About this RNA:
This 88-nucleotide RNA sequence from Hartmannibacter diazotrophicus belongs to the Rfam family "chrB-a RNA". NCBI's taxonomy places the organism under Bacteria, Pseudomonadati, Pseudomonadota, Alphaproteobacteria, Hartmannibacter. The family's RNA type in Rfam is cis-regulatory element. The family has 163 seed sequences and 347 matches in Rfam 15.1.
[Rfam]
RNA sequence: GCCAAGGGGUUCUCCGCGACGACCCCGUGAGGCGGCAGCCCAAUGAUCGCGUCCCUAUUCCCCGAAGCAGAAGGGAAGGACGCCCAUG
Dot-bracket structure: .....(((((...........)))))......................((((((.......................)))))).....
Numbered sequence: 001g002c003c004a005a006g007g008g009g010u011u012c013u014c015c016g017c018g019a020c021g022a023c024c025c026c027g028u029g030a031g032g033c034g035g036c037a038g039c040c041c042a043a044u045g046a047u048c049g050c051g052u053c054c055c056u057a058u059u060c061c062c063c064g065a066a067g068c069a070g071a072a073g074g075g076a077a078g079g080a081c082g083c084c085c086a087u088g
Stems, first nucleotide, its partner, number of pairs: 006026005049083006